[Rfam]
RNA sequence: CUGAGGUACAGGGCUUAGCUAAUUUGUGAACAGAGUUGUAACUGCAUUCUUGUUCACAGUGGCUAAGUUCCGCACCUCUC
Numbered sequence: 001c002u003g004a005g006g007u008a009c010a011g012g013g014c015u016u017a018g019c020u021a022a023u024u025u026g027u028g029a030a031c032a033g034a035g036u037u038g039u040a041a042c043u044g045c046a047u048u049c050u051u052g053u054u055c056a057c058a059g060u061g062g063c064u065a066a067g068u069u070c071c072g073c074a075c076c077u078c079u080c
Stems, first nucleotide, its partner, number of pairs: 011070010026057007
Background: A member of the RNA family "mir-27 microRNA precursor family" from Chiloscyllium punctatum, 80 nucleotides long. The family has 82 seed sequences and 1,440 matches in Rfam 15.1. The source organism's lineage runs through Eukaryota, Eumetazoa, Chordata, Elasmobranchii and Chiloscyllium. The literature on the family includes a 2008 paper in J Virol by Yao et al., "MicroRNA profile of Marek's disease virus-transformed T-cell line MSB-1: predominance of virus-encoded microRNAs".